[Rfam]
RNA sequence: AAAUAAUUAUACGACUGACGGAAGUGGAAUAGACCACAGGGAGUAUAAGGGUAAAAGUGUCGACCGUCUGGGCAGAUCUU
Numbered sequence: 001a002a003a004u005a006a007u008u009a010u011a012c013g014a015c016u017g018a019c020g021g022a023a024g025u026g027g028a029a030u031a032g033a034c035c036a037c038a039g040g041g042a043g044u045a046u047a048a049g050g051g052u053a054a055a056a057g058u059g060u061c062g063a064c065c066g067u068c069u070g071g072g073c074a075g076a077u078c079u080u
Base pairs, nucleotide, nucleotide: 003052004051007048008047009046010045011044012043015040016039017068018067019066020065021064024037025036026035027034058074059073060072061071
Description:
ZMP/ZTP riboswitch aptamer (pfl RNA motif): an 80-nucleotide RNA from Firmicutes bacterium CAG:56. The match comes from Rfam's covariance-model search (58 bits). For this family Rfam cites "Parallel Discovery Strategies Provide a Basis for Riboswitch Ligand Design" (Tran et al., Cell Chem Biol, 2020).